[Rfam]
RNA sequence: AAUUCUGUUCGUAAGAAGAAAGAGAAGCAAAUCUAUUCUAUACUUGAUAAGUGCCAAUAUGAAAUGGGC
Numbered sequence: 001a002a003u004u005c006u007g008u009u010c011g012u013a014a015g016a017a018g019a020a021a022g023a024g025a026a027g028c029a030a031a032u033c034u035a036u037u038c039u040a041u042a043c044u045u046g047a048u049a050a051g052u053g054c055c056a057a058u059a060u061g062a063a064a065u066g067g068g069c
Stems, first nucleotide, its partner, number of pairs: 003022002006019001008017003043068003051060003
Description:
The record is a 69-nucleotide RNA from Oryza meyeriana, which matches "Plastid-clpP 5UTR RNA" in Rfam. The literature on the family includes a 2023 paper in Plant Commun by Richter et al., "Retrograde signaling in plants: A critical review focusing on the GUN pathway and beyond". NCBI's taxonomy places the organism under Eukaryota, Spermatophyta, Liliopsida, Petrosaviidae, Oryza meyeriana. About the family: Plastid clpP is a non-coding RNA (ncRNA) recognised in plastids. It was found in the prime untranslated region (5UTR) of a protease complex subunit (clpP) in plastids, suggesting a posible cis-regulatory function.